Small nucleolar RNA R30/Z108: a 96-nucleotide RNA from Arabidopsis lyrata. The organism belongs to Arabidopsis lyrata, within Eukaryota. Its Rfam clan is "SNORD100 clan". The literature on the family includes a 2002 paper in Curr Biol by Marker et al., "Experimental RNomics. Identification of 140 Candidates for Small Non-Messenger RNAs in the Plant Arabidopsis thaliana". snoR30 is a C/D box small nucleolar RNA which acts as a methylation guide for 18S ribosomal RNA in plants. Rfam links the family to the GO terms RNA processing and nucleolus. The family has 6 seed sequences and 626 matches in Rfam 15.1.
[Rfam]
RNA sequence: GGAGAUAACGAUGAGGAUAUACAGCUCCCUCUUCUGAUUAAGCUGAAGAGAAUUGCUGCCAGAAUCGAACCUAAAUCACUAGCCACUACUAAGUUA
Numbered sequence: 001g002g003a004g005a006u007a008a009c010g011a012u013g014a015g016g017a018u019a020u021a022c023a024g025c026u027c028c029c030u031c032u033u034c035u036g037a038u039u040a041a042g043c044u045g046a047a048g049a050g051a052a053u054u055g056c057u058g059c060c061a062g063a064a065u066c067g068a069a070c071c072u073a074a075a076u077c078a079c080u081a082g083c084c085a086c087u088a089c090u091a092a093g094u095u096a
Stems, first nucleotide, its partner, number of pairs: 006096004